RNA: Small nucleolar SNORD12/SNORD106
RNA sequence: AAUGUGGUUAAUGAUGCUCAACUUUUUUUCCCCAUCUUAUCGACUAUGGUGAAACCUGUCUGAAAUAAGCCAAUUUGUCUGAAACCACAGA
Numbered sequence: 001a002a003u004g005u006g007g008u009u010a011a012u013g014a015u016g017c018u019c020a021a022c023u024u025u026u027u028u029u030c031c032c033c034a035u036c037u038u039a040u041c042g043a044c045u046a047u048g049g050u051g052a053a054a055c056c057u058g059u060c061u062g063a064a065a066u067a068a069g070c071c072a073a074u075u076u077g078u079c080u081g082a083a084a085c086c087a088c089a090g091a
Stems, first nucleotide, its partner, number of pairs: 003089007